The record is an 82-nucleotide sequence from Dacryopinax primogenitus, which matches "tRNA" in Rfam. The organism belongs to Dacryopinax, within Eukaryota. Rfam describes the family as follows. Transfer RNA (tRNA) molecules are approximately 80 nucleotides in length. Their secondary structure includes four short double-helical elements and three loops (D, anti-codon, and T loops). Further hydrogen bonds mediate the characteristic L-shaped molecular structure. tRNAs have two regions of fundamental functional importance: the anti-codon, which is responsible for specific mRNA codon recognition, and the 3' end, to which the tRNAs corresponding amino acid is attached (by aminoacyl-tRNA synthetases). tRNAs cope with the degeneracy of the genetic code in two manners: having more than one tRNA (with a specific anti-codon) for a particular amino acid; and 'wobble' base-pairing, i.e. permitting non-standard base-pairing at the 3rd anti-codon position.

[Rfam]
RNA sequence: GGGAGUGUGGUCGAGUGGUCUAAGACGUUGCCCUUAAGAUGCAAUGCAGAAAUGCGCAUGGGUUCGAACCCCAUCGCUCCCA
Dot-bracket structure: (((((((..(((...........))).((((.........)))).............(((((.......)))))))))))).
Numbered sequence: 001g002g003g004a005g006u007g008u009g010g011u012c013g014a015g016u017g018g019u020c021u022a023a024g025a026c027g028u029u030g031c032c033c034u035u036a037a038g039a040u041g042c043a044a045u046g047c048a049g050a051a052a053u054g055c056g057c058a059u060g061g062g063u064u065c066g067a068a069c070c071c072c073a074u075c076g077c078u079c080c081c082a
Stems, first nucleotide, its partner, number of pairs: 001081007010026003028044004058074005